[Rfam]
RNA sequence: UUCGUCGUUGCAGGAGAGCGCAGGCGGGCUUCGGCGCGGCCUGCCGCCGAAGGCGCAAUCUCCCAUAACCGCUCAGGCACCGGGACUGUAACGACACC
Numbered sequence: 001u002u003c004g005u006c007g008u009u010g011c012a013g014g015a016g017a018g019c020g021c022a023g024g025c026g027g028g029c030u031u032c033g034g035c036g037c038g039g040c041c042u043g044c045c046g047c048c049g050a051a052g053g054c055g056c057a058a059u060c061u062c063c064c065a066u067a068a069c070c071g072c073u074c075a076g077g078c079a080c081c082g083g084g085a086c087u088g089u090a091a092c093g094a095c096a097c098c
Stems, first nucleotide, its partner, number of pairs: 006093008020044006046078003049074002053072003059065001
Description
Rfam assigns this 98-nucleotide sequence from Pelomonas sp. HMWF004 to the family "Glycine riboswitch aptamer". It scores 57 bits against the family's covariance model. Taxonomically the source falls in Roseateles (Bacteria, Pseudomonadati, Burkholderiales, Sphaerotilaceae).